Rfam assigns this 87-nucleotide RNA from Caldibacillus debilis to the family "Group II catalytic intron D1-D4-1". A search with the family's covariance model found it, with a score of 61 bits. The family has 237 seed sequences and 2,508 matches in Rfam 15.1.
[Rfam]
RNA sequence: UAACCAGAACCGAAAGGUUCUAUUGAACGUACAGGAGUCAGCAGAGGCCAUAGUACUGGAGUAAGGGACGCCUGAAACAGGAAGGGC
Number, nucleotide and partner (000 for none) at each position: 001u025002a024003a000004c000005c000006a021007g020008a019009a018010c017011c016012g000013a000014a000015a000016g011017g010018u009019u008020c007021u006022a000023u000024u002025g001026a000027a000028c000029g000030u000031a000032c000033a000034g000035g000036a000037g000038u045039c044040a000041g000042c000043a000044g039045a038046g000047g087048c086049c085050a000051u000052a000053g000054u000055a000056c080057u079058g078059g000060a000061g000062u000063a073064a000065g000066g000067g000068a000069c000070g000071c000072c000073u063074g000075a000076a000077a000078c058079a057080g056081g000082a000083a000084g000085g049086g048087c047
Lineage of the source: Bacteria > Caryophanales > Bacillaceae > Caldibacillus > Caldibacillus debilis. On this family, see Bonen and Vogel, Trends Genet 2001: "The ins and outs of group II introns". Rfam's curators write: Group II introns are found in rRNA, tRNA and mRNA of organelles in fungi, plants and protists, and also in mRNA in bacteria.